[Rfam]
Nucleotides: 090
Stems, first nucleotide, its partner, number of pairs: 001090004
Number, partner (000 for none) and nucleotide at each position: 001090g002089c003088g004087a005000g006000g007000u008000g009000g010000u011000g012000a013000u014000g015000u016000u017000u018000a019000u020000g021000u022000a023000u024000g025000a026000u027000a028000g029000u030000c031000u032000g033000u034000c035000a036000a037000u038000c039000c040000c041000c042000u043000g044000a045000u046000g047000u048000c049000a050000c051000a052000a053000u054000g055000u056000g057000a058000a059000g060000a061000c062000a063000c064000g065000c066000a067000u068000a069000c070000a071000u072000c073000c074000c075000g076000a077000c078000a079000g080000g081000c082000u083000c084000u085000g086000a087004u088003c089002g090001c